[Rfam]
RNA sequence: GGGGAUGACUGGUUUUGACAGCGCGUAGAGGUGGUUUGUAAGCACGUAGUGCAUUGUAGCCUGGCACUUUAAUCUCAGACUUCAGACCUUUUAAAUGGCGCAAAUAAUUACGCUCUUGCUGCGUAACCGAAGUACAGUAAGUUAACGCUUUAUCCCUGCAAGCUGCGGGGACGAGACACUACCCGGAUACUCUUAUCCCGAAGUGGUCCGAUCAUGGUAGUGCCGGUAUAUCGGGGUUAUCCUUUGCAUCGCCUUGCUGUAAGGGAGACAUUUUAGAGGCUAAGCACGGAAGAGGUAGCUUCAUCCAUACUUCCGACGCCGACAAUAGAAGUGAAGCUAAACGUGUAGAAAGCAAAUUAGUUCCGUGUUUGGACGAGGGUUCAAAUCCCUCCAUCUCCACAG
Numbered sequence: 001g002g003g004g005a006u007g008a009c010u011g012g013u014u015u016u017g018a019c020a021g022c023g024c025g026u027a028g029a030g031g032u033g034g035u036u037u038g039u040a041a042g043c044a045c046g047u048a049g050u051g052c053a054u055u056g057u058a059g060c061c062u063g064g065c066a067c068u069u070u071a072a073u074c075u076c077a078g079a080c081u082u083c084a085g086a087c088c089u090u091u092u093a094a095a096u097g098g099c100g101c102a103a104a105u106a107a108u109u110a111c112g113c114u115c116u117u118g119c120u121g122c123g124u125a126a127c128c129g130a131a132g133u134a135c136a137g138u139a140a141g142u143u144a145a146c147g148c149u150u151u152a153u154c155c156c157u158g159c160a161a162g163c164u165g166c167g168g169g170g171a172c173g174a175g176a177c178a179c180u181a182c183c184c185g186g187a188u189a190c191u192c193u194u195a196u197c198c199c200g201a202a203g204u205g206g207u208c209c210g211a212u213c214a215u216g217g218u219a220g221u222g223c224c225g226g227u228a229u230a231u232c233g234g235g236g237u238u239a240u241c242c243u244u245u246g247c248a249u250c251g252c253c254u255u256g257c258u259g260u261a262a263g264g265g266a267g268a269c270a271u272u273u274u275a276g277a278g279g280c281u282a283a284g285c286a287c288g289g290a291a292g293a294g295g296u297a298g299c300u301u302c303a304u305c306c307a308u309a310c311u312u313c314c315g316a317c318g319c320c321g322a323c324a325a326u327a328g329a330a331g332u333g334a335a336g337c338u339a340a341a342c343g344u345g346u347a348g349a350a351a352g353c354a355a356a357u358u359a360g361u362u363c364c365g366u367g368u369u370u371g372g373a374c375g376a377g378g379g380u381u382c383a384a385a386u387c388c389c390u391c392c393a394u395c396u397c398c399a400c401a402g
Base pairs, nucleotide, nucleotide: 001398002397003396004395005394006393007392019371020370021368022367023366024365025364027362030361032359033358034357035356036355037354038353039352043345044344045343046342047341048068049067050066051065052064055084056083058081059080061078151173153171154170155169156168157167177222178221179220180219181218182217184210185209186208187207190205192203193202197236198235199234240266241265242264243263244262245261246260247259248258251281253279254278255277284319285318287315288314289313290312291311292310293308295306298337299336300335301334305331375391376390377389378388379387
RNA: transfer-messenger RNA